[Rfam]
RNA sequence: GCGUUGACUGAAGAAUCGCUAUCGCAGCUCGCGCACUGGAUGGUCCUCGCCAUUCGUCUUUCGCUGUGGGGAAAGUCCCCGGAGAUACAGAGCGUGCUCCCAAUCAUUUCACGGAAAGCGGCCUUCUUCAAGCACGAUGGCACUGGUUGGGAGCGGCGAGAAUGAUCUGCCAGACGUGAUAAAUUUCGCGCCUGGCUCCAUCUCGACCACUCUGUGGCCUUCUCUAAUGACUUCCCUUCGAUCAAGGCUGGAGUGCGCGAAGACAUGAGCACGCUCUUCGCUCGAGGGCGUUGUUUGAGGAGAGGCCCUUCGUUGCUCAUAGACACAGUUAUGCGAUUGUUGAUUUCUUCGCGAAAUCAUCAACUCAAUGGGGCUCACUCUCGGCCAACG
Numbered sequence: 001g002c003g004u005u006g007a008c009u010g011a012a013g014a015a016u017c018g019c020u021a022u023c024g025c026a027g028c029u030c031g032c033g034c035a036c037u038g039g040a041u042g043g044u045c046c047u048c049g050c051c052a053u054u055c056g057u058c059u060u061u062c063g064c065u066g067u068g069g070g071g072a073a074a075g076u077c078c079c080c081g082g083a084g085a086u087a088c089a090g091a092g093c094g095u096g097c098u099c100c101c102a103a104u105c106a107u108u109u110c111a112c113g114g115a116a117a118g119c120g121g122c123c124u125u126c127u128u129c130a131a132g133c134a135c136g137a138u139g140g141c142a143c144u145g146g147u148u149g150g151g152a153g154c155g156g157c158g159a160g161a162a163u164g165a166u167c168u169g170c171c172a173g174a175c176g177u178g179a180u181a182a183a184u185u186u187c188g189c190g191c192c193u194g195g196c197u198c199c200a201u202c203u204c205g206a207c208c209a210c211u212c213u214g215u216g217g218c219c220u221u222c223u224c225u226a227a228u229g230a231c232u233u234c235c236c237u238u239c240g241a242u243c244a245a246g247g248c249u250g251g252a253g254u255g256c257g258c259g260a261a262g263a264c265a266u267g268a269g270c271a272c273g274c275u276c277u278u279c280g281c282u283c284g285a286g287g288g289c290g291u292u293g294u295u296u297g298a299g300g301a302g303a304g305g306c307c308c309u310u311c312g313u314u315g316c317u318c319a320u321a322g323a324c325a326c327a328g329u330u331a332u333g334c335g336a337u338u339g340u341u342g343a344u345u346u347c348u349u350c351g352c353g354a355a356a357u358c359a360u361c362a363a364c365u366c367a368a369u370g371g372g373g374c375u376c377a378c379u380c381u382c383g384g385c386c387a388a389c390g
Base pairs, nucleotide, nucleotide: 002390003389004388005387006386008384009383010382011381014338015337016336017335018334019333022069023068024067025066026065027064028063038055039054040053041052042051043050044049074375075374077373078372079371080370089095227310229308234305235304237302238301239300243297244296245295246294255291256290257289258288274280341359342358343357344356345355
Shown here is a 390-nucleotide RNA sequence from Psilocybe cf. subviscida, a member of the family "RNase MRP". It is annotated as a ribozyme. About the family: RNase MRP is an enzymatically active ribonucleoprotein with two distinct roles in eukaryotes.